[Rfam]
RNA sequence: UGUGAAAUAAAUCACAUACAAACAUACACCCCUUUGUUUGAGCGUGAACAUUUCUCCCAUCCCCUUUGUGUAAUGAAAAACGCCUGCCGGACGUGGCAGGCGUUUUUCUAUA
Numbered sequence: 001u002g003u004g005a006a007a008u009a010a011a012u013c014a015c016a017u018a019c020a021a022a023c024a025u026a027c028a029c030c031c032c033u034u035u036g037u038u039u040g041a042g043c044g045u046g047a048a049c050a051u052u053u054c055u056c057c058c059a060u061c062c063c064c065u066u067u068g069u070g071u072a073a074u075g076a077a078a079a080a081c082g083c084c085u086g087c088c089g090g091a092c093g094u095g096g097c098a099g100g101c102g103u104u105u106u107u108c109u110a111u112a
Stems, first nucleotide, its partner, number of pairs: 002056001004054005013046003017042001019040006075108015
A member of the RNA family "Listeria sRNA rli61" from Planococcus halotolerans, 112 nucleotides long. The family's RNA type in Rfam is cis-regulatory element. The base pairs follow the family's consensus structure, which was predicted with RNAalifold. NCBI's taxonomy places the organism under Bacteria, Bacilli, Caryophanales, Caryophanaceae, Planococcus.